A member of the RNA family "sok antitoxin (CssrC)" from Yersinia bercovieri, 194 nucleotides long. Rfam 15.1 lists 305 matches to the family in 167 species. The literature on the family includes a 2007 paper in Mol Microbiol by Kawano et al., "An antisense RNA controls synthesis of an SOS-induced toxin evolved from an antitoxin". The base pairs follow the family's consensus structure, which is taken from published work. Rfam classes the family as an antitoxin RNA.

[Rfam]
RNA sequence: GGGUGCUUGAAGCUGUCUGCUUUGGGCAUUGUUCGAAUCAGAUAGAGAGUUGCUUUGAAAUAGAGCAGAUGUUGCCAUAAAGCAGAUAGGAAAAAGCCCCGUACUGACGUUAAUCAACACGAGGCUCCCUAAUGCACGACAACAUUACGGUAGCCUUUUACCCGCCGAAAGGCAAGGCAAGGAGGCUGAAUAUG
Number, nucleotide and partner (000 for none) at each position: 001g100002g099003g098004u000005g097006c096007u095008u094009g000010a000011a000012g000013c089014u088015g087016u086017c085018u084019g083020c082021u081022u080023u079024g000025g000026g076027c000028a000029u000030u000031g000032u000033u000034c000035g000036a000037a000038u000039c000040a000041g000042a000043u000044a000045g000046a000047g000048a000049g000050u000051u000052g000053c000054u000055u000056u000057g000058a000059a000060a000061u000062a000063g000064a000065g000066c000067a000068g000069a000070u000071g000072u000073u000074g000075c000076c026077a000078u000079a023080a022081a021082g020083c019084a018085g017086a016087u015088a014089g013090g000091a000092a000093a000094a008095a007096g006097c005098c003099c002100c001101g120102u119103a000104c000105u000106g000107a000108c000109g000110u000111u000112a000113a000114u000115c000116a000117a000118c000119a102120c101121g157122a156123g155124g154125c153126u000127c150128c149129c000130u147131a146132a145133u144134g143135c000136a000137c000138g000139a000140c000141a000142a000143c134144a133145u132146u131147a130148c000149g128150g127151u000152a000153g125154c124155c123156u122157u121158u000159u000160a000161c185162c184163c000164g000165c181166c000167g000168a000169a000170a000171g000172g000173c000174a000175a000176g000177g000178c000179a000180a000181g165182g000183a000184g162185g161186c000187u000188g000189a000190a000191u000192a000193u000194g000
Also identified in Shigella as CssrC.